[Rfam]
RNA sequence: CACAAAAGCACGGGGUGCCUGGUUAAAGCCAAGCUGAGAUAAUACCCGAAACCUGAUUUGGAUAAUGCCAACGUAGGGAUGCAAGCUAAGAUAUUU
Numbered sequence: 001c002a003c004a005a006a007a008g009c010a011c012g013g014g015g016u017g018c019c020u021g022g023u024u025a026a027a028g029c030c031a032a033g034c035u036g037a038g039a040u041a042a043u044a045c046c047c048g049a050a051a052c053c054u055g056a057u058u059u060g061g062a063u064a065a066u067g068c069c070a071a072c073g074u075a076g077g078g079a080u081g082c083a084a085g086c087u088a089a090g091a092u093a094u095u096u
Stems, first nucleotide, its partner, number of pairs: 008082003011048004016042001017034002020031002052077004058071004
Dot-bracket structure: .......(((((((.(((.((........)).)).......)..))))...((((..((((......))))..))))..)))..............
Shown here is a 96-nucleotide RNA sequence from Arenibacter sp. NBRC 103722, a member of the family "TPP riboswitch aptamer (THI element)". From the family's description: Vitamin B(1) in its active form thiamin pyrophosphate (TPP) is an essential coenzyme that is synthesised by coupling of pyrimidine and thiazole moieties in bacteria. The previously detected thiamin-regulatory element, thi box was extended, resulting in a new, highly conserved RNA secondary structure, the THI element, which is widely distributed in eubacteria and also occurs in some archaea. The organism belongs to Arenibacter, within Bacteria. It scores 63 bits against the family's covariance model. Pairs were carried over by alignment from the consensus structure, which is taken from published work.